[Rfam]
RNA sequence: UCCCCGGGACGGCCCGGCGGAGCCAGUGUCCAGGCGGGACGGCCCGC
Numbered sequence: 001u002c003c004c005c006g007g008g009a010c011g012g013c014c015c016g017g018c019g020g021a022g023c024c025a026g027u028g029u030c031c032a033g034g035c036g037g038g039a040c041g042g043c044c045c046g047c
Base pairs, nucleotide, nucleotide: 001020002019004017005016006015007014008013034047035046036045037044038043
The family of this 47-nucleotide sequence from Pseudoxanthomonas suwonensis is "Guanidine-II riboswitch aptamer (mini-ykkC)". The match comes from Rfam's covariance-model search (34 bits). Rfam's curators write: Simpler in structure and has fewer highly conserved nucleotide positions than the ykkC-yxkD leader. Despite this each of its two stem-loop structures directly bind free guanidine. Therefore, mini-ykkC RNA motif represents a distinct class of guanidine-sensing RNAs. Its crystal structure was also determined.